[Rfam]
RNA sequence: UAAAAAGUUGGCCUUCUCUUCCUGGUUCUUCCCAGAAUUGGGAAAAGCUGGGUUGAGAGGGUGAAAAAAAAAAAGU
Numbered sequence: 001u002a003a004a005a006a007g008u009u010g011g012c013c014u015u016c017u018c019u020u021c022c023u024g025g026u027u028c029u030u031c032c033c034a035g036a037a038u039u040g041g042g043a044a045a046a047g048c049u050g051g052g053u054u055g056a057g058a059g060g061g062u063g064a065a066a067a068a069a070a071a072a073a074a075g076u
Stems, first nucleotide, its partner, number of pairs: 014059005021052005029044006
A member of the RNA family "mir-320 microRNA precursor family" from Microcebus murinus, 76 nucleotides long.
It scores 89 bits against the family's covariance model.
NCBI's taxonomy places the organism under Eukaryota, Sarcopterygii, Amniota, Theria, Microcebus.
A reference for the family is Berezikov et al. (2006), "Many novel mammalian microRNA candidates identified by extensive cloning and RAKE analysis", Genome Res.
The base pairs follow the family's consensus structure, which was predicted with RNAalifold.